Rfam assigns this 49-nucleotide RNA from Rhodovulum imhoffii to the family "SAM/SAH riboswitch aptamer". Gene Ontology terms of the family: regulation of gene expression and S-adenosylmethionine metabolic process.

RNA sequence: GAACCGUCACAACGGCUUCCUGGCGUGAUGGGGAUAACCUAAUGGAGCA
Numbered sequence: 001g002a003a004c005c006g007u008c009a010c011a012a013c014g015g016c017u018u019c020c021u022g023g024c025g026u027g028a029u030g031g032g033g034a035u036a037a038c039c040u041a042a043u044g045g046a047g048c049a
Stems, first nucleotide, its partner, number of pairs: 004031007013022002015048003019045002